[Rfam]
RNA sequence: GGGGACCUAAGGGGCCCUAUAACACGGUGGGUUUUACCCCACCGAUACACAUAGCGGAACCUUUGGUUCUGCACUGCUAAACGGAAGACAGAAA
Number, nucleotide and partner (000 for none) at each position: 001g018002g017003g016004g015005a000006c014007c013008u012009a000010a000011g000012g008013g007014g006015c004016c003017c002018u001019a000020u000021a000022a000023c000024a000025c000026g000027g072028u071029g070030g069031g068032u000033u000034u000035u000036a067037c066038c000039c000040c000041a000042c000043c000044g000045a000046u000047a000048c000049a000050c000051a000052u000053a000054g000055c000056g000057g000058a000059a000060c000061c000062u000063u000064u000065g000066g037067u036068u031069c030070u029071g028072c027073a000074c000075u000076g000077c000078u000079a000080a000081a000082c000083g000084g000085a000086a000087g000088a000089c000090a000091g000092a000093a000094a000
RNA: L2-Alphaproteobacteria ribosomal protein leader